About this RNA
tRNA: a 74-nucleotide sequence from Methanocella arvoryzae. The base pairs follow the family's consensus structure, which is taken from published work. Gene Ontology term of the family: triplet codon-amino acid adaptor activity. By type it is a transfer RNA.
RNA sequence: GGGCCUGUGGUCUAGCUGGCUAUGACGUCGCCUUCACACGGCGGAGGUCAGGGGUUCGAAUCCCUUCGGGCCCA
Number, nucleotide and partner (000 for none) at each position: 001g073002g072003g071004c070005c069006u068007g067008u000009g000010g026011u025012c024013u000014a000015g000016c000017u000018g000019g000020c000021u000022a000023u000024g012025a011026c010027g000028u044029c043030g042031c041032c040033u000034u000035c000036a000037c000038a000039c000040g032041g031042c030043g029044g028045a000046g000047g000048u000049c000050a066051g065052g064053g063054g062055u000056u000057c000058g000059a000060a000061u000062c054063c053064c052065u051066u050067c007068g006069g005070g004071c003072c002073c001074a000